[Rfam]
Nucleotides: 087
Stems, first nucleotide, its partner, number of pairs: 004084003013073005020067002023064011037050005
Number, partner (000 for none) and nucleotide at each position: 001000a002000g003000a004084g005083g006082c007000c008000c009000u010000c011000c012000a013073c014072a015071g016070c017069c018000a019000g020067g021066g022000c023064g024063g025062g026061a027060u028059g029058c030057u031056u032055g033054c034000c035000u036000u037050g038049u039048c040047g041046c042000u043000g044000u045000g046041g047040u048039g049038a050037u051000g052000a053000a054033g055032c056031a057030a058029g059028c060027a061026u062025u063024c064023c065000a066021c067020c068000a069017g070016g071015c072014u073013g074000c075000u076000c077000a078000c079000a080000c081000u082006g083005c084004c085000a086000g087000c